[Rfam]
The record is a 70-nucleotide RNA sequence from Echinicola vietnamensis, which matches "Fluoride riboswitch aptamer (crcB RNA motif)" in Rfam.
Nucleotides: 070
Stems, first nucleotide, its partner, number of pairs: 010026004016061005034051002037048004
Number, partner (000 for none) and nucleotide at each position: 001000a002000u003000g004000g005000u006000a007000c008000a009000a010026g011025g012024u013023g014000a015000u016061g017060g018059g019058g020057u021000g022000c023013c024012a025011c026010c027000u028000a029000u030000a031000a032000c033000c034051g035050c036000u037048c038047u039046g040045a041000u042000u043000u044000u045040u046039c047038a048037g049000c050035g051034c052000u053000g054000a055000u056000g057020a058019c059018u060017c061016c062000u063000g064000c065000u066000u067000c068000g069000a070000c

The source organism's lineage runs through Bacteria, Pseudomonadati, Cytophagales, Cyclobacteriaceae and Echinicola vietnamensis. The match comes from Rfam's covariance-model search (50 bits).